[Rfam]
RNA sequence: CAACCCUGCGGAGUGCUCAGGUCCGCCGCAUCUCCUGGGUCCGUGGGGUUUGGCCGGUGGGUGAGCUUGCGGGAGGCCUCCCCGCUUUCUCCCCACCGGCCAGCCUA
Numbered sequence: 001c002a003a004c005c006c007u008g009c010g011g012a013g014u015g016c017u018c019a020g021g022u023c024c025g026c027c028g029c030a031u032c033u034c035c036u037g038g039g040u041c042c043g044u045g046g047g048g049u050u051u052g053g054c055c056g057g058u059g060g061g062u063g064a065g066c067u068u069g070c071g072g073g074a075g076g077c078c079u080c081c082c083c084g085c086u087u088u089c090u091c092c093c094c095a096c097c098g099g100c101c102a103g104c105c106u107a
Base pairs, nucleotide, nucleotide: 003049004048005047006046007045008044009043010042016039017038018037019036020035021034051102052101053100054099055098056097057096058095059094060093061092
A member of the RNA family "EcpR1" from Xanthobacter versatilis, 107 nucleotides long. Rfam classes the family as a small RNA. It is one of the family's seed sequences. Gene Ontology terms of the family: negative regulation of cell cycle, mRNA binding and regulation of translation in response to stress.